[Rfam]
RNA: Small nucleolar RNA Z221/R21b
Organism: Raphanus sativus
RNA sequence: UGGCAGUGAUGAGCAAUUCGAGAUAGUCAUGCACCACUCUGAGUUUCCUCUGUAAAAGGAUCUUUGUGCUGAGAAUUUCUCUACCAUAUUUAUACUGAGCCA
Number, nucleotide and partner (000 for none) at each position: 001u102002g101003g100004c099005a000006g000007u000008g000009a000010u000011g000012a000013g000014c000015a000016a000017u000018u000019c000020g000021a000022g000023a000024u000025a000026g000027u000028c000029a000030u000031g000032c000033a000034c000035c000036a000037c000038u000039c000040u000041g000042a000043g000044u000045u000046u000047c000048c000049u000050c000051u000052g000053u000054a000055a000056a000057a000058g000059g000060a000061u000062c000063u000064u000065u000066g000067u000068g000069c000070u000071g000072a000073g000074a000075a000076u000077u000078u000079c000080u000081c000082u000083a000084c000085c000086a000087u000088a000089u000090u000091u000092a000093u000094a000095c000096u000097g000098a000099g004100c003101c002102a001